[Rfam]
Shown here is a 111-nucleotide RNA sequence, a member of the family "drum RNA".

RNA sequence: AGCCUGUGAUAUAAUAGCUUUUUCAAGGAGUUUUUUAUUGAGGCUCUUAGUGGUUCUCACUUAGCCAAUUCUUGAAUAGGAGGGAUAACCUCCGAAAGAAAAAGUGAUAAC
Numbered sequence: 001a002g003c004c005u006g007u008g009a010u011a012u013a014a015u016a017g018c019u020u021u022u023u024c025a026a027g028g029a030g031u032u033u034u035u036u037a038u039u040g041a042g043g044c045u046c047u048u049a050g051u052g053g054u055u056c057u058c059a060c061u062u063a064g065c066c067a068a069u070u071c072u073u074g075a076a077u078a079g080g081a082g083g084g085a086u087a088a089c090c091u092c093c094g095a096a097a098g099a100a101a102a103a104g105u106g107a108u109a110a111c
Stems, first nucleotide, its partner, number of pairs: 001045004011038004016033001017031005023075004058106003079093004
From the family's description: Firmicutes, Bacteroidetes (1 example), Proteobacteria (2 examples), Spirochaetes (2 examples).